Rfam assigns this 105-nucleotide sequence from Vireo altiloquus to the family "mir-223 microRNA precursor family". NCBI's taxonomy places the organism under Eukaryota, Opisthokonta, Gnathostomata, Sauria, Vireo. The literature on the family includes a 2003 paper in Science by Lim et al., "Vertebrate microRNA genes".

RNA sequence: GCCGGAAGCUGCAGUGUGGCACUGCGUGUAUUUGACAAGCUGAGUCCGACACUCAGUGUGCAGAGUGUCAGUUUGUCAAAUACCCCAAGUGAGGCACUGCUGAGC
Numbered sequence: 001g002c003c004g005g006a007a008g009c010u011g012c013a014g015u016g017u018g019g020c021a022c023u024g025c026g027u028g029u030a031u032u033u034g035a036c037a038a039g040c041u042g043a044g045u046c047c048g049a050c051a052c053u054c055a056g057u058g059u060g061c062a063g064a065g066u067g068u069c070a071g072u073u074u075g076u077c078a079a080a081u082a083c084c085c086c087a088a089g090u091g092a093g094g095c096a097c098u099g100c101u102g103a104g105c
Base pairs, nucleotide, nucleotide: 020091021090022089023088026085028083029082030081031080032079033078034077035076036075037074038073039072040071041070048069049068050067051066053064054063